[Rfam]
RNA sequence: GGGCCGGUAGCUCAGUUAGGGAGAGCGUCUGACUCUUAAUCAGACGGUCGAGGGUUCAAAUCCCUUCCGGCCCG
Numbered sequence: 001g002g003g004c005c006g007g008u009a010g011c012u013c014a015g016u017u018a019g020g021g022a023g024a025g026c027g028u029c030u031g032a033c034u035c036u037u038a039a040u041c042a043g044a045c046g047g048u049c050g051a052g053g054g055u056u057c058a059a060a061u062c063c064c065u066u067c068c069g070g071c072c073c074g
Base pairs, nucleotide, nucleotide: 001073002072003071004070005069006068007067010026011025012024013023028044029043030042031041032040050066051065052064053063054062
Source information:
This 74-nucleotide RNA sequence from Halogeometricum limi belongs to the Rfam family "tRNA". Pairs were carried over by alignment from the consensus structure, which is taken from published work. The family's RNA type in Rfam is transfer RNA. The source organism's lineage runs through Archaea, Halobacteria, Halobacteriales, Haloferacaceae and Halogeometricum.